RNA sequence: UGCCAUAAGGGUAGUAUUACCCUUAUGGCAACCAUGUAGCAUGUAGCA
Numbered sequence: 001u002g003c004c005a006u007a008a009g010g011g012u013a014g015u016a017u018u019a020c021c022c023u024u025a026u027g028g029c030a031a032c033c034a035u036g037u038a039g040c041a042u043g044u045a046g047c048a
Stems, first nucleotide, its partner, number of pairs: 001030011

Annotation:
Rfam assigns this 48-nucleotide sequence to the family "ssNA-helicase RNA". Rfam classes the family as a small RNA.